[Rfam]
RNA sequence: GAGAUCCGAUGUAACUGGCGACGAGAGUGGAGAUGAACCACGAUGGAGCAUCGGAACAUACGGCCGGUCGCCUGGGCAAAAGAG
Numbered sequence: 001g002a003g004a005u006c007c008g009a010u011g012u013a014a015c016u017g018g019c020g021a022c023g024a025g026a027g028u029g030g031a032g033a034u035g036a037a038c039c040a041c042g043a044u045g046g047a048g049c050a051u052c053g054g055a056a057c058a059u060a061c062g063g064c065c066g067g068u069c070g071c072c073u074g075g076g077c078a079a080a081a082g083a084g
Stems, first nucleotide, its partner, number of pairs: 003057001005055008015045001017072005027041004063077003
A member of the RNA family "ZMP/ZTP riboswitch aptamer (pfl RNA motif)" from Paenibacillus nuruki, 84 nucleotides long.
Its family is annotated with one-carbon metabolic process and regulation of purine nucleotide biosynthetic process in the Gene Ontology.
Rfam 15.1 lists 3,295 matches to the family in 2,545 species.